[Rfam]
RNA sequence: GGCACUAUGGCCGAGUGGUUAAGGCGACAGACUUGAAAUCUGUUGGGCUCUGCCCGCGCUGGUUCAAAUCCUGCUGGUGUCG
Numbered sequence: 001g002g003c004a005c006u007a008u009g010g011c012c013g014a015g016u017g018g019u020u021a022a023g024g025c026g027a028c029a030g031a032c033u034u035g036a037a038a039u040c041u042g043u044u045g046g047g048c049u050c051u052g053c054c055c056g057c058g059c060u061g062g063u064u065c066a067a068a069u070c071c072u073g074c075u076g077g078u079g080u081c082g
Stems, first nucleotide, its partner, number of pairs: 001081007010025003027043005058074002061071002